[Rfam]
RNA sequence: UGAGUGUUAUGAUGAUGGAGUAUCCAGUACUCUUAGUCUAGCUCUGGUCUACCGCUAGGUCUACCUAAGCCCUAGCGG
Numbered sequence: 001u002g003a004g005u006g007u008u009a010u011g012a013u014g015a016u017g018g019a020g021u022a023u024c025c026a027g028u029a030c031u032c033u034u035a036g037u038c039u040a041g042c043u044c045u046g047g048u049c050u051a052c053c054g055c056u057a058g059g060u061c062u063a064c065c066u067a068a069g070c071c072c073u074a075g076c077g078g
Base pairs, nucleotide, nucleotide: 002044003043004042005041011038012037013036017033018032019031020030021029022028052078053077054076055075056074057073058072059071